[Rfam]
RNA sequence: GAAGCUCUCCCGAGUUAGGGCCUAGUCAGCCGCUCGGAAGUGUAACGACCGGAGGGCGAAAGCCCGACGGUUGGAUAAGCGCGUGACACGAGGUGAAGGGUGUUGCCCUGAAUCUGAAACGUAGCCCCGAGAAGCUUCUAUUUUGGGAGAGAGCCGAUCCUGUCAGGUCGGGCGCAGGCCAUGCGGGCGGUGCGCAAGAGAUGAGCACCAAGCGUCCCCCCGGGGUCUCAGACGG
Numbered sequence: 001g002a003a004g005c006u007c008u009c010c011c012g013a014g015u016u017a018g019g020g021c022c023u024a025g026u027c028a029g030c031c032g033c034u035c036g037g038a039a040g041u042g043u044a045a046c047g048a049c050c051g052g053a054g055g056g057c058g059a060a061a062g063c064c065c066g067a068c069g070g071u072u073g074g075a076u077a078a079g080c081g082c083g084u085g086a087c088a089c090g091a092g093g094u095g096a097a098g099g100g101u102g103u104u105g106c107c108c109u110g111a112a113u114c115u116g117a118a119a120c121g122u123a124g125c126c127c128c129g130a131g132a133a134g135c136u137u138c139u140a141u142u143u144u145g146g147g148a149g150a151g152a153g154c155c156g157a158u159c160c161u162g163u164c165a166g167g168u169c170g171g172g173c174g175c176a177g178g179c180c181a182u183g184c185g186g187g188c189g190g191u192g193c194g195c196a197a198g199a200g201a202u203g204a205g206c207a208c209c210a211a212g213c214g215u216c217c218c219c220c221c222g223g224g225g226u227c228u229c230a231g232a233c234g235g
Stems, first nucleotide, its partner, number of pairs: 010037005019031003023204001025202002040089004047072005054065004121229001124226006145220003151216002153179003159172003184214002189209005
The record is a 235-nucleotide sequence from Thioflavicoccus mobilis, which matches "Group II catalytic intron D1-D4-6" in Rfam. A search with the family's covariance model found it, with a score of 51 bits.